Notes: Shown here is a 142-nucleotide RNA from Phascolarctos cinereus, a member of the family "Small Cajal body specific RNA 11". A reference for the family is Darzacq et al. (2002), "Cajal body-specific small nuclear RNAs: a novel class of 2'-O-methylation and pseudouridylation guide RNAs", EMBO J. It scores 95 bits against the family's covariance model. By type it is a small Cajal body RNA. Its family is annotated with nucleolus, Cajal body and RNA processing in the Gene Ontology. The base pairs follow the family's consensus structure, which was predicted with RNAalifold. About the family: scaRNAs are a specific class of small nuclear RNAs which localise to the Cajal bodies and guide the modification of RNA polymerase II transcribed spliceosomal RNAs U1, U2, U4, U5 and U12. ACA57 belongs to the H/ACA box class of guide RNAs as it has the predicted hairpin-hinge-hairpin-tail structure, conserved H/ACA-box motifs and is found associated with GAR1. ACA57 is predicted to guide the pseudouridylation of the U5 spliceosomal RNA at position U43.

[Rfam]
RNA sequence: CAGUCAAGUCCAUGCUUAUUCCUGCUUUCCUGCUUGCCACUGUGGCAGGAGGGCCAGAGGCAGGACUAAGAGCAAACCAUCCUCUCAGAUUAGGAGGGCUGCCCUGAGAUGGGGCUGACUCUUAAAGGCACAAGAGGACACU
Dot-bracket structure: .((((..(.((............(((.((((((...........)))))).)))....)))..)))).............(((((..(.((..(((((.(((((((...)))))).).)))))..)).)...))))).....